[Rfam]
RNA sequence: GUUGGACGAUCUGGAGAGAGGCGCCCUUGAGGCGUCCACCGAAGGAGAAACCCCGGACCUUCCGUAAGGAAGGCGCGGGGGAAACUCUCAGGUAACCGCGACAGAUGGGGGCCG
Numbered sequence: 001g002u003u004g005g006a007c008g009a010u011c012u013g014g015a016g017a018g019a020g021g022c023g024c025c026c027u028u029g030a031g032g033c034g035u036c037c038a039c040c041g042a043a044g045g046a047g048a049a050a051c052c053c054c055g056g057a058c059c060u061u062c063c064g065u066a067a068g069g070a071a072g073g074c075g076c077g078g079g080g081g082a083a084a085c086u087c088u089c090a091g092g093u094a095a096c097c098g099c100g101a102c103a104g105a106u107g108g109g110g111g112c113c114g
Stems, first nucleotide, its partner, number of pairs: 007108001009106005020036004038093003041089002045087003051080005
A member of the RNA family "Glycine riboswitch aptamer" from Methylopila turkensis, 114 nucleotides long. Taxonomically the source falls in Methylopila (Bacteria, Pseudomonadati, Pseudomonadota, Methylopilaceae). From the family's description: This family represents the bacterial glycine riboswitch.